[Rfam]
RNA sequence: AACCCUCGGGUUGCAGUCUGCGUAAACAGACUGAUGGCUGGUGACUUUUUGGUCACCAGCCU
Numbered sequence: 001a002a003c004c005c006u007c008g009g010g011u012u013g014c015a016g017u018c019u020g021c022g023u024a025a026a027c028a029g030a031c032u033g034a035u036g037g038c039u040g041g042u043g044a045c046u047u048u049u050u051g052g053u054c055a056c057c058a059g060c061c062u
Stems, first nucleotide, its partner, number of pairs: 014033005022027001036061010